[Rfam]
RNA: Archaeal large subunit ribosomal RNA, nucleotides 1764 to 2137
RNA sequence: CGGGUAUACCGUAUGGCGAGGGAAUUCGGCAAAUUAGUCCUGUAGCUUAGGUAUAAGGGAUGCCUGCAGCCUUCAUGAGGAAUGGGGGCCGCAGGUCGCAGUGACAAGGGGGUUUCGACUGUUUAAUAAAAACACAGGCGACUGCUAGUCCGAAAGGAUUUGUAUAGUCGCUGAAUCCUGGCCGGUGCCGGUACCUAAAACUUGGGUUCAACCGAGCUAAGGGCCGGUUAACGCCGGGAGUAACUCUGACUCUCUUAAGGUAGCCAAAUGCCUUGUCGGGUAAGUUCCGACGCGCAUGAAUGGAACAACGAGAGCCCCACUGUCCCCGCCUACAACCCGGUGAAGCCACAUAAGGUGGACGAACAGUCCAUCAU
Numbered sequence: 001c002g003g004g005u006a007u008a009c010c011g012u013a014u015g016g017c018g019a020g021g022g023a024a025u026u027c028g029g030c031a032a033a034u035u036a037g038u039c040c041u042g043u044a045g046c047u048u049a050g051g052u053a054u055a056a057g058g059g060a061u062g063c064c065u066g067c068a069g070c071c072u073u074c075a076u077g078a079g080g081a082a083u084g085g086g087g088g089c090c091g092c093a094g095g096u097c098g099c100a101g102u103g104a105c106a107a108g109g110g111g112g113u114u115u116c117g118a119c120u121g122u123u124u125a126a127u128a129a130a131a132a133c134a135c136a137g138g139c140g141a142c143u144g145c146u147a148g149u150c151c152g153a154a155a156g157g158a159u160u161u162g163u164a165u166a167g168u169c170g171c172u173g174a175a176u177c178c179u180g181g182c183c184g185g186u187g188c189c190g191g192u193a194c195c196u197a198a199a200a201c202u203u204g205g206g207u208u209c210a211a212c213c214g215a216g217c218u219a220a221g222g223g224c225c226g227g228u229u230a231a232c233g234c235c236g237g238g239a240g241u242a243a244c245u246c247u248g249a250c251u252c253u254c255u256u257a258a259g260g261u262a263g264c265c266a267a268a269u270g271c272c273u274u275g276u277c278g279g280g281u282a283a284g285u286u287c288c289g290a291c292g293c294g295c296a297u298g299a300a301u302g303g304a305a306c307a308a309c310g311a312g313a314g315c316c317c318c319a320c321u322g323u324c325c326c327c328g329c330c331u332a333c334a335a336c337c338c339g340g341u342g343a344a345g346c347c348a349c350a351u352a353a354g355g356u357g358g359a360c361g362a363a364c365a366g367u368c369c370a371u372c373a374u
Stems, first nucleotide, its partner, number of pairs: 001339004011333003015330004020325003037061005045052002062096006069089008097101001109318007116310002120134003137172008145162001148159004176304003180235003185232002187228005194223003201216005236254006255259001275291006354372005